Shown here is a 73-nucleotide sequence from Bacterioplanes sanyensis, a member of the family "tRNA". The match comes from Rfam's covariance-model search (60 bits). NCBI's taxonomy places the organism under Bacteria, Pseudomonadota, Oceanospirillales, Oceanospirillaceae, Bacterioplanes. By type it is a transfer RNA. The base pairs follow the family's consensus structure, which is taken from published work.

[Rfam]
RNA sequence: CUCCCUAUAGCUCAACUGGAUAGAGCCACCGCCUCCUAAGCGGUAGAUCGGGGUUCGAGUCCCUGUGGGGAGG
Number, nucleotide and partner (000 for none) at each position: 001c072002u071003c070004c069005c068006u067007a066008u000009a000010g026011c025012u024013c023014a000015a000016c000017u000018g000019g000020a000021u000022a000023g013024a012025g011026c010027c000028a044029c043030c042031g041032c040033c000034u000035c000036c000037u000038a000039a000040g032041c031042g030043g029044u028045a000046g000047a000048u000049c065050g064051g063052g062053g061054u000055u000056c000057g000058a000059g000060u000061c053062c052063c051064u050065g049066u007067g006068g005069g004070g003071a002072g001073g000